A member of the RNA family "drum RNA", 114 nucleotides long.
The base pairs follow the family's consensus structure, which is taken from published work.
The family's RNA type in Rfam is small RNA.
Rfam's curators write: Firmicutes, Bacteroidetes (1 example), Proteobacteria (2 examples), Spirochaetes (2 examples).
RNA sequence: UAGCGUUGAAGCGGAUGAUGGGGUCAGUUUCCGUACAUCCGUGGAGCUUUGAACGAGGGUUUAGGACAGUUUCCACAGACUGACUUAGGCUUACGCCGAACGAAAAUGUCUUAA
Numbered sequence: 001u002a003g004c005g006u007u008g009a010a011g012c013g014g015a016u017g018a019u020g021g022g023g024u025c026a027g028u029u030u031c032c033g034u035a036c037a038u039c040c041g042u043g044g045a046g047c048u049u050u051g052a053a054c055g056a057g058g059g060u061u062u063a064g065g066a067c068a069g070u071u072u073c074c075a076c077a078g079a080c081u082g083a084c085u086u087a088g089g090c091u092u093a094c095g096c097c098g099a100a101c102g103a104a105a106a107u108g109u110c111u112u113a114a
Base pairs, nucleotide, nucleotide: 002048003047004046011042012041013040014039015038016037017036021032022031024083025082026081027080064111065110066109088097089096090095